[Rfam]
RNA sequence: GAGACAAAUGCCAAACCUGCCGUGAGGUAGGGACGGAAAGCCACGGGUCUCUCGAAGACAGCCGGGCCGCCUUGC
Numbered sequence: 001g002a003g004a005c006a007a008a009u010g011c012c013a014a015a016c017c018u019g020c021c022g023u024g025a026g027g028u029a030g031g032g033a034c035g036g037a038a039a040g041c042c043a044c045g046g047g048u049c050u051c052u053c054g055a056a057g058a059c060a061g062c063c064g065g066g067c068c069g070c071c072u073u074g075c
Base pairs, nucleotide, nucleotide: 001075003072011036012035016031017030018029019028020027021026034061040067041066042065044064045063046062047059048058049057
The family of this 75-nucleotide RNA sequence is "c-di-GMP-I-GGC riboswitch aptamer". The base pairs follow the family's consensus structure, which is taken from published work. It scores 64 bits against the family's covariance model.